[Rfam]
RNA: c-di-AMP riboswitch aptamer (ydaO/yuaA leader)
RNA sequence: GAGAUAUUCCAGCCGAAGUCCACAACGGACGCGGAGAACCCACCACCAUGGGGUGAAGCCGCGCAACAUGCGGCGGGGCAACUUUGGUCCUAACCCGACAGCUAACUCCGCAGGCAAACAAGGGAGGAACA
Numbered sequence: 001g002a003g004a005u006a007u008u009c010c011a012g013c014c015g016a017a018g019u020c021c022a023c024a025a026c027g028g029a030c031g032c033g034g035a036g037a038a039c040c041c042a043c044c045a046c047c048a049u050g051g052g053g054u055g056a057a058g059c060c061g062c063g064c065a066a067c068a069u070g071c072g073g074c075g076g077g078g079c080a081a082c083u084u085u086g087g088u089c090c091u092a093a094c095c096c097g098a099c100a101g102c103u104a105a106c107u108c109c110g111c112a113g114g115c116a117a118a119c120a121a122g123g124g125a126g127g128a129a130c131a
Base pairs, nucleotide, nucleotide: 012115013114014113018030019029020028031111032110033109034108035107036106041050042049051096052095053094059073060072061071062070076090077089078088079087